[Rfam]
RNA sequence: GACCGCCACCGCGGGAGCCCGGCGUAUCGGGCUGAGAAGACGGCUGAGACGGCCGCUGACCGCCACAACCUGAUCCGGUUCGUACCGGCGUAGGGAGGGGAUCCCCUUGACAG
Numbered sequence: 001g002a003c004c005g006c007c008a009c010c011g012c013g014g015g016a017g018c019c020c021g022g023c024g025u026a027u028c029g030g031g032c033u034g035a036g037a038a039g040a041c042g043g044c045u046g047a048g049a050c051g052g053c054c055g056c057u058g059a060c061c062g063c064c065a066c067a068a069c070c071u072g073a074u075c076c077g078g079u080u081c082g083u084a085c086c087g088g089c090g091u092a093g094g095g096a097g098g099g100g101a102u103c104c105c106c107u108u109g110a111c112a113g
Stems, first nucleotide, its partner, number of pairs: 007100001009098002011063004016057001017032005039056001041055006069094004075088004